[Rfam]
This 81-nucleotide sequence from Bemisia tabaci belongs to the Rfam family "mir-263 microRNA precursor family". The family is grouped with related families in Rfam's "mir-182 clan".
RNA sequence: GAGCUUUGACUCUUGGCACUGGAAGAAUUCACAGACUGUUAUUAAAGAUCGUGGAUCUUUUGGUGCCAAACUCCACAGCUC
Numbered sequence: 001g002a003g004c005u006u007u008g009a010c011u012c013u014u015g016g017c018a019c020u021g022g023a024a025g026a027a028u029u030c031a032c033a034g035a036c037u038g039u040u041a042u043u044a045a046a047g048a049u050c051g052u053g054g055a056u057c058u059u060u061u062g063g064u065g066c067c068a069a070a071c072u073c074c075a076c077a078g079c080u081c
Stems, first nucleotide, its partner, number of pairs: 003079003007075002013069006020062003023058001025057002029054004034049001

A search with the family's covariance model found it, with a score of 60 bits. The source organism's lineage runs through Eukaryota, Ecdysozoa, Insecta, Pterygota and Bemisia. A reference for the family is Li et al. (2009), "Direct sequencing and expression analysis of a large number of miRNAs in Aedes aegypti and a multi-species survey of novel mosquito miRNAs", BMC Genomics.